[Rfam]
RNA sequence: AGUAUCAGAUGAUGAAAACUCGAAACAAUCUUAGGACACCUUCUGACACAGCGUGCUGUGAAUGAGAAGGCAACUUUUCUGAUGAUGCU
Number, nucleotide and partner (000 for none) at each position: 001a089002g088003u087004a086005u085006c084007a083008g000009a000010u000011g000012a000013u000014g000015a000016a000017a000018a000019c000020u000021c000022g000023a000024a000025a000026c000027a000028a000029u000030c000031u000032u000033a000034g000035g000036a000037c000038a000039c000040c000041u000042u000043c000044u050045g049046a000047c000048a000049c045050a044051g000052c000053g000054u000055g000056c000057u000058g000059u000060g000061a000062a000063u000064g000065a000066g000067a000068a000069g000070g000071c000072a000073a000074c000075u000076u000077u000078u000079c000080u000081g000082a000083u007084g006085a005086u004087g003088c002089u001
RNA: Small nucleolar RNA snoR31/Z110/Z27